RNA sequence: CGGGCUGGCCGGGCGACCGCGUGACCCCUCGCCGCGAGGCGCCGGGUCCCGAGGAAAGUCCGGGCUCCGCAGAGCAGGGUGGUGGGUAACGCCCACCCGGGGUGACCCGCGGGAAAGUGCCACAGAGAACAGACCGCCGCGCCUCCGGGCGCGGUAAGGGUGAAAAGGUGGGGUAAGAGCCCACCAGUGCGCCGGGCGACCGGCGCAGCUCGGCAAACCCCACCCGGAGCAAGACCAGACAGCACACGCCGGCCUCGGCCGAGAGGGUGGCUCGCCCGAGUGUGCGGGUAGGUCGCUGGAGGCUGUCGGCAACGGCAGCCGUAGAUGGAUGGUCGCCGGCUCCUCGGAGUCACAGAACCCGGCUUACAGGCCAGCCCGUCCC
Numbered sequence: 001c002g003g004g005c006u007g008g009c010c011g012g013g014c015g016a017c018c019g020c021g022u023g024a025c026c027c028c029u030c031g032c033c034g035c036g037a038g039g040c041g042c043c044g045g046g047u048c049c050c051g052a053g054g055a056a057a058g059u060c061c062g063g064g065c066u067c068c069g070c071a072g073a074g075c076a077g078g079g080u081g082g083u084g085g086g087u088a089a090c091g092c093c094c095a096c097c098c099g100g101g102g103u104g105a106c107c108c109g110c111g112g113g114a115a116a117g118u119g120c121c122a123c124a125g126a127g128a129a130c131a132g133a134c135c136g137c138c139g140c141g142c143c144u145c146c147g148g149g150c151g152c153g154g155u156a157a158g159g160g161u162g163a164a165a166a167g168g169u170g171g172g173g174u175a176a177g178a179g180c181c182c183a184c185c186a187g188u189g190c191g192c193c194g195g196g197c198g199a200c201c202g203g204c205g206c207a208g209c210u211c212g213g214c215a216a217a218c219c220c221c222a223c224c225c226g227g228a229g230c231a232a233g234a235c236c237a238g239a240c241a242g243c244a245c246a247c248g249c250c251g252g253c254c255u256c257g258g259c260c261g262a263g264a265g266g267g268u269g270g271c272u273c274g275c276c277c278g279a280g281u282g283u284g285c286g287g288g289u290a291g292g293u294c295g296c297u298g299g300a301g302g303c304u305g306u307c308g309g310c311a312a313c314g315g316c317a318g319c320c321g322u323a324g325a326u327g328g329a330u331g332g333u334c335g336c337c338g339g340c341u342c343c344u345c346g347g348a349g350u351c352a353c354a355g356a357a358c359c360c361g362g363c364u365u366a367c368a369g370g371c372c373a374g375c376c377c378g379u380c381c382c
Base pairs, nucleotide, nucleotide: 001378002377003376004375005374006373007372008371009370010369011367012337013336014335015334016333017332018331020051021050023048024047025046026045027044056365057364058363060362061361062360063359064358065229066228067227068226072273073272074271075270077225078224079223080222081221082096083095084094085093086092097111098109099108100107101106112220113219117218118217119214120213121212134159135158136155137154138153139152140151141150142149143148167185168184169183170182171181172180187209188207189206190205191204192203193202194201195200233294234293235292236291242285243284244283245282246281247280265277266276267275268274301320302319303318304317305316306315307314308313
RNA: Bacterial RNase P class A
Organism: Nocardioides caeni